Shown here is a 65-nucleotide sequence from Chrysemys picta, a member of the family "Selenocysteine insertion sequence 1".

[Rfam]
RNA sequence: UUUUCUUCAAUGAAAAACUUUGUCGAAAAGGACACGUUCCUGAGAAAUGUUUAGAUUUUGAAAAA
Numbered sequence: 001u002u003u004u005c006u007u008c009a010a011u012g013a014a015a016a017a018c019u020u021u022g023u024c025g026a027a028a029a030g031g032a033c034a035c036g037u038u039c040c041u042g043a044g045a046a047a048u049g050u051u052u053a054g055a056u057u058u059u060g061a062a063a064a065a
Base pairs, nucleotide, nucleotide: 001065002064003063004062015052016051017050018049019047020046021045023043024042030040031039032038
The source organism's lineage runs through Eukaryota, Teleostomi, Tetrapoda, Archelosauria and Chrysemys picta. The family's RNA type in Rfam is cis-regulatory element. From the family's description: The incorporation of selenocysteine into a protein sequence is directed by an in-frame UGA codon (usually a stop codon) within the coding region of the mRNA. Selenoprotein mRNAs contain a conserved secondary structure in the 3' UTR that is required for the distinction of UGA stop from UGA selenocysteine. The selenocysteine insertion sequence (SECIS) is around 60 nt in length and adopts a hairpin structure which is sufficiently well-defined and conserved to act as a computational screen for selenoprotein genes. The match comes from Rfam's covariance-model search (35 bits).